RNA sequence: ACGCUGGAGAUAAUGAUGGUUACAAGCACAUAUCUGAAUGCAUUUUAUGUGGAAUUACUGGUUGUCUGAAUCUCCAAUGG
Numbered sequence: 001a002c003g004c005u006g007g008a009g010a011u012a013a014u015g016a017u018g019g020u021u022a023c024a025a026g027c028a029c030a031u032a033u034c035u036g037a038a039u040g041c042a043u044u045u046u047a048u049g050u051g052g053a054a055u056u057a058c059u060g061g062u063u064g065u066c067u068g069a070a071u072c073u074c075c076a077a078u079g080g
Stems, first nucleotide, its partner, number of pairs: 002079002005076002008073004

Description
The record is an 80-nucleotide sequence from Gadus morhua, which matches "Small nucleolar RNA SNORD121A" in Rfam. Its family is annotated with nucleolus and RNA processing in the Gene Ontology. Pairs were carried over by alignment from the consensus structure, which was predicted with WAR. A reference for the family is Yang et al. (2006), "snoSeeker: an advanced computational package for screening of guide and orphan snoRNA genes in the human genome", Nucleic Acids Res. Rfam classes the family as a C/D-box small nucleolar RNA.